Rfam assigns this 53-nucleotide RNA from Notoacmeibacter marinus to the family "serC leader".
RNA sequence: CUGCGGGCCAUCCCUCCCCAACGAGGGACGCUCUAUCUGUGAGGAUAGGAGAC
Numbered sequence: 001c002u003g004c005g006g007g008c009c010a011u012c013c014c015u016c017c018c019c020a021a022c023g024a025g026g027g028a029c030g031c032u033c034u035a036u037c038u039g040u041g042a043g044g045a046u047a048g049g050a051g052a053c
Stems, first nucleotide, its partner, number of pairs: 011028006033048006
Rfam's curators write: This family is a putative regulatory RNA structure that is found upstream of the serC-serA operon in some alpha-proteobacteria. The final stem of the structure overlaps the ribosome binding site of the serC reading frame. The pairing is the family consensus, mapped onto this sequence. Its family is annotated with regulation of gene expression in the Gene Ontology. The literature on the family includes a 2005 paper in Genome Biol by Corbino et al., "Evidence for a second class of S-adenosylmethionine riboswitches and other regulatory RNA motifs in alpha-proteobacteria".